ACEA small nucleolar RNA U3: a 168-nucleotide RNA sequence from Polarella glacialis.
The family's consensus secondary structure is taken from published work.
Its Rfam clan is "U3 clan".
Rfam classes the family as a C/D-box small nucleolar RNA.
Small nucleolar RNAs (snoRNAs) are involved in the processing and modification of rRNA in the nucleolus. There are two main classes of snoRNAs: the box C/D class, and the box H/ACA class. U3 snoRNA is a member of the box C/D class. Indeed, the box C/D element is a subset of the six short sequence elements found in all U3 snoRNAs, namely boxes A, A', B, C, C', and D. The U3 snoRNA secondary structure is characterised by a small 5' domain (with boxes A and A'), and a larger 3' domain (with boxes B, C, C', and D), the two domains being linked by a single-stranded hinge.
Gene Ontology terms of the family: nucleolus and RNA processing.
A search with the family's covariance model found it, with a score of 61 bits.
[Rfam]
RNA sequence: UCGACUGUACUUGCACAGGAUCGCUUCUACAGUGACUCCUCUUGCAUACAUGUCAUAAAACAGAGCUUCACAGCAUCUCUGAUGAUGUCGAUCUCUGCACUGAUAAGGAAUUUGUUGGAACAUGCUCCUAGCUUGAUGAAAUCUAUCAGUGCAAACUUCUGAAGAGAU
Numbered sequence: 001u002c003g004a005c006u007g008u009a010c011u012u013g014c015a016c017a018g019g020a021u022c023g024c025u026u027c028u029a030c031a032g033u034g035a036c037u038c039c040u041c042u043u044g045c046a047u048a049c050a051u052g053u054c055a056u057a058a059a060a061c062a063g064a065g066c067u068u069c070a071c072a073g074c075a076u077c078u079c080u081g082a083u084g085a086u087g088u089c090g091a092u093c094u095c096u097g098c099a100c101u102g103a104u105a106a107g108g109a110a111u112u113u114g115u116u117g118g119a120a121c122a123u124g125c126u127c128c129u130a131g132c133u134u135g136a137u138g139a140a141a142u143c144u145a146u147c148a149g150u151g152c153a154a155a156c157u158u159c160u161g162a163a164g165a166g167a168u
Stems, first nucleotide, its partner, number of pairs: 003039001006035001008034004017028004046068001050067001053064002076167005094155001096153003100149006106129004131143001133141002